About this RNA: The family of this 85-nucleotide sequence from Cicer arietinum is "mir-156 microRNA precursor family". The match comes from Rfam's covariance-model search (72 bits). From the family's description: This family represents the plant microRNA (miRNA) precursor mir-156.

RNA sequence: UUGACAGAAGAGAGUGAGCACACAGAGGCAUUCGAUAUAGACAAUUAUACCGUUACUUUUGCGUGCUCACUGCUCUUUCUGUCAA
Numbered sequence: 001u002u003g004a005c006a007g008a009a010g011a012g013a014g015u016g017a018g019c020a021c022a023c024a025g026a027g028g029c030a031u032u033c034g035a036u037a038u039a040g041a042c043a044a045u046u047a048u049a050c051c052g053u054u055a056c057u058u059u060u061g062c063g064u065g066c067u068c069a070c071u072g073c074u075c076u077u078u079c080u081g082u083c084a085a
Stems, first nucleotide, its partner, number of pairs: 001085009010075003013071009023061003